[Rfam]
The record is an 84-nucleotide RNA sequence from Sapajus apella, which matches "mir-548 microRNA precursor family" in Rfam. The base pairs follow the family's consensus structure, which was predicted with WAR. Lineage of the source: Eukaryota > Opisthokonta > Metazoa > Cebinae > Sapajus.
RNA sequence: UAUUAGGUUGGUGCAAAAGUAACUGCGUGUUUUGCCAUUAUAAGUAAUGGCAAAAGCCGCAGUUACUUUUGCACCAACCUAAUA
Number, nucleotide and partner (000 for none) at each position: 001u084002a083003u082004u081005a080006g079007g078008u077009u076010g075011g074012u073013g072014c071015a070016a069017a068018a067019g066020u065021a064022a063023c062024u061025g060026c059027g058028u000029g000030u055031u054032u053033u052034g051035c050036c049037a048038u047039u046040a045041u000042a000043a000044g000045u040046a039047a038048u037049g036050g035051c034052a033053a032054a031055a030056g000057c000058c027059g026060c025061a024062g023063u022064u021065a020066c019067u018068u017069u016070u015071g014072c013073a012074c011075c010076a009077a008078c007079c006080u005081a004082a003083u002084a001